[Rfam]
RNA sequence: AAAUACACUGAGUGGUCAGAUUAUUUUGUGUUCAGAGAUCAAAAUAAUCUGGCCACUCAGUGUGUGU
Numbered sequence: 001a002a003a004u005a006c007a008c009u010g011a012g013u014g015g016u017c018a019g020a021u022u023a024u025u026u027u028g029u030g031u032u033c034a035g036a037g038a039u040c041a042a043a044a045u046a047a048u049c050u051g052g053c054c055a056c057u058c059a060g061u062g063u064g065u066g067u
Stems, first nucleotide, its partner, number of pairs: 004064014019049010